[Rfam]
RNA sequence: AUUAAAAAAGGAAAUGGUGUCUUCCUACUCAACCGCCCUGAAAAGCUGAUGGCGCCUACAGAAUA
Number, nucleotide and partner (000 for none) at each position: 001a000002u000003u000004a000005a000006a000007a000008a000009a000010g025011g024012a023013a022014a000015u000016g056017g055018u054019g053020u052021c051022u013023u012024c011025c010026u000027a000028c000029u000030c000031a000032a000033c000034c000035g046036c045037c000038c000039u000040g000041a000042a000043a000044a000045g036046c035047u000048g000049a000050u000051g021052g020053c019054g018055c017056c016057u000058a000059c000060a000061g000062a000063a000064u000065a000
RNA: Fluoride riboswitch aptamer (crcB RNA motif)